[Rfam]
RNA: RT-3 RNA
RNA sequence: AAUCGGUUCUACGAUGAUGAGGGACGUGUCCUUCGAUAUCGCACCGAGGGGGACAAGCCACGGCAAAAGCACAUAUAAAGUGGAAAGCCGAAACAUCAAGUGUCGGGUAGAGUUUGGUAGGCCGCACCAAGGCCCGAAGGACUCAGGCCCG
Numbered sequence: 001a002a003u004c005g006g007u008u009c010u011a012c013g014a015u016g017a018u019g020a021g022g023g024a025c026g027u028g029u030c031c032u033u034c035g036a037u038a039u040c041g042c043a044c045c046g047a048g049g050g051g052g053a054c055a056a057g058c059c060a061c062g063g064c065a066a067a068a069g070c071a072c073a074u075a076u077a078a079a080g081u082g083g084a085a086a087g088c089c090g091a092a093a094c095a096u097c098a099a100g101u102g103u104c105g106g107g108u109a110g111a112g113u114u115u116g117g118u119a120g121g122c123c124g125c126a127c128c129a130a131g132g133c134c135c136g137a138a139g140g141a142c143u144c145a146g147g148c149c150c151g
Stems, first nucleotide, its partner, number of pairs: 003047005012041005019034005049059002061090004070082003104151005110144006120134004